[Rfam]
RNA sequence: AGGUAAUGCCUCCUGCACCUAUAUCACCGGAGGCACUCGGUCAUGCUGUGGGUCUGGAAAGACCUUAGACAUUAUUGUCAGUGGUGUGAUGAGAGGCGGGGUUGGAUGCCCU
Numbered sequence: 001a002g003g004u005a006a007u008g009c010c011u012c013c014u015g016c017a018c019c020u021a022u023a024u025c026a027c028c029g030g031a032g033g034c035a036c037u038c039g040g041u042c043a044u045g046c047u048g049u050g051g052g053u054c055u056g057g058a059a060a061g062a063c064c065u066u067a068g069a070c071a072u073u074a075u076u077g078u079c080a081g082u083g084g085u086g087u088g089a090u091g092a093g094a095g096g097c098g099g100g101g102u103u104g105g106a107u108g109c110c111c112u
Stems, first nucleotide, its partner, number of pairs: 001020004007035007036095003040090008050065006068079004098112005
RNA: epsC RNA